The record is a 144-nucleotide RNA from Paenibacillus uliginis, which matches "Group II catalytic intron D1-D4-4" in Rfam. About the family: Group II introns are found in rRNA, tRNA and mRNA of organelles in fungi, plants and protists, and also in mRNA in bacteria. NCBI's taxonomy places the organism under Bacteria, Bacillota, Bacilli, Paenibacillaceae, Paenibacillus uliginis. It scores 99 bits against the family's covariance model.

RNA sequence: UAGUUGGUGAAAGUCCAACCGAAGGAGGGUCCAAGCCACCUUCGUAGCUAGGACACCUGCGUAUGGAGAAAUCCAUGCGUAGAAGCGUGUCGACGAAAGUAUCUGUCAGUGACAGGGCGAGCAAUAUGCCAGGCCGUAACAUAA
Numbered sequence: 001u002a003g004u005u006g007g008u009g010a011a012a013g014u015c016c017a018a019c020c021g022a023a024g025g026a027g028g029g030u031c032c033a034a035g036c037c038a039c040c041u042u043c044g045u046a047g048c049u050a051g052g053a054c055a056c057c058u059g060c061g062u063a064u065g066g067a068g069a070a071a072u073c074c075a076u077g078c079g080u081a082g083a084a085g086c087g088u089g090u091c092g093a094c095g096a097a098a099g100u101a102u103c104u105g106u107c108a109g110u111g112a113c114a115g116g117g118c119g120a121g122c123a124a125u126a127u128g129c130c131a132g133g134c135c136g137u138a139a140c141a142u143a144a
Base pairs, nucleotide, nucleotide: 020044021043022042023041024040052091053090054089055088056087057082058081059080060079061078062077066073067072099118102116103115104114105113106112121137122136